RNA sequence: UUUUGCCUGUGGUAUCUAAUGUCCAGUCUGUUUUUGUUGCUGGAUGUUUCGUUUUGAGGGCAGAAAUAUAAAGCAGAUCUUUGCGACACAGAUAGCUUCAUUUGUAAUAAGCUUUCUGUUACACUAUCCCUGCUUACAUUU
Number, nucleotide and partner (000 for none) at each position: 001u000002u000003u000004u062005g061006c060007c059008u058009g000010u000011g000012g000013u000014a000015u000016c000017u000018a048019a047020u046021g045022u044023c043024c042025a041026g040027u039028c000029u000030g037031u000032u000033u000034u000035u000036g000037u030038u000039g027040c026041u025042g024043g023044a022045u021046g020047u019048u018049u000050c000051g000052u000053u000054u000055u000056g000057a000058g008059g007060g006061c005062a004063g000064a000065a000066a000067u000068a000069u000070a000071a000072a134073g133074c132075a131076g130077a000078u000079c000080u000081u000082u000083g000084c000085g000086a000087c000088a119089c118090a117091g116092a115093u000094a113095g112096c111097u110098u000099c000100a000101u000102u000103u000104g000105u000106a000107a000108u000109a000110a097111g096112c095113u094114u000115u092116c091117u090118g089119u088120u000121a000122c000123a000124c000125u000126a000127u000128c000129c000130c076131u075132g074133c073134u072135u000136a000137c000138a000139u000140u000141u000
Description:
A member of the RNA family "Small nucleolar RNA F1/F2/snoR5a" from Ipomoea nil, 141 nucleotides long. Rfam 15.1 lists 325 matches to the family in 97 species. From the family's description: This family contains F1, F2 and snoR5a sequences, all of which are members of the the H/ACA class of snoRNA that guide the sites of modification of uridines to pseudouridines. Taxonomically the source falls in Ipomoea (Eukaryota, Viridiplantae, Magnoliopsida, Gunneridae).